RNA sequence: UCAGUGGUGGUUCGUGACCAUCCCACCGAAAAAAACUAGGAGGCU
Numbered sequence: 001u002c003a004g005u006g007g008u009g010g011u012u013c014g015u016g017a018c019c020a021u022c023c024c025a026c027c028g029a030a031a032a033a034a035a036c037u038a039g040g041a042g043g044c045u
Base pairs, nucleotide, nucleotide: 006027007026008025009024010023015038016037
Annotation
This 45-nucleotide RNA from Loigolactobacillus coryniformis belongs to the Rfam family "PreQ1 (pre queuosine) riboswitch aptamer". Rfam links the family to the GO term queuosine biosynthetic process. About the family: This family is a bacterial riboswitch that binds to the metabolite preQ1, an intermediate in the biosynthesis of the modified nucleoside queuosine from GTP. One example of this riboswitch is located in the leader of the Bacillus subtilis ykvJKLM (queCDEF) operon which encodes four genes necessary for queuosine production. PreQ1 binding to the riboswitch aptamer is thought to induce premature transcription termination within the leader to down-regulate expression of these genes. The source organism's lineage runs through Bacteria, Bacillota, Bacilli, Loigolactobacillus coryniformis and Loigolactobacillus coryniformis subsp. coryniformis. Rfam 15.1 lists 873 matches to the family in 692 species. For this family Rfam cites "Identification of four genes necessary for biosynthesis of the modified nucleoside queuosine" (Reader et al., J Biol Chem, 2004).